Purine riboswitch aptamer: a 96-nucleotide RNA sequence from Butyricicoccus pullicaecorum. About the family: Riboswitches are metabolite binding domains within certain messenger RNAs that serve as precision sensors for their corresponding targets.
[Rfam]
RNA sequence: AAUGAAAUCAGAUUCAUGACUUAUAUAUGCUCAUAAUCGGUUGAGCGUUUCUACCAACUGCCGGAACAGUUGACUAUAAGUCCUCCACCAUGCGGG
Numbered sequence: 001a002a003u004g005a006a007a008u009c010a011g012a013u014u015c016a017u018g019a020c021u022u023a024u025a026u027a028u029g030c031u032c033a034u035a036a037u038c039g040g041u042u043g044a045g046c047g048u049u050u051c052u053a054c055c056a057a058c059u060g061c062c063g064g065a066a067c068a069g070u071u072g073a074c075u076a077u078a079a080g081u082c083c084u085c086c087a088c089c090a091u092g093c094g095g096g
Stems, first nucleotide, its partner, number of pairs: 018082008029046005055072006